[Rfam]
RNA: L2-Alphaproteobacteria ribosomal protein leader
RNA sequence: GGGGACCUUCGGGGCCCUUUACACAUGGCAGCUACCUGCCACAAAGCAAACGGAAGACAGAAA
Numbered sequence: 001g002g003g004g005a006c007c008u009u010c011g012g013g014g015c016c017c018u019u020u021a022c023a024c025a026u027g028g029c030a031g032c033u034a035c036c037u038g039c040c041a042c043a044a045a046g047c048a049a050a051c052g053g054a055a056g057a058c059a060g061a062a063a
Stems, first nucleotide, its partner, number of pairs: 001018004006014003027040005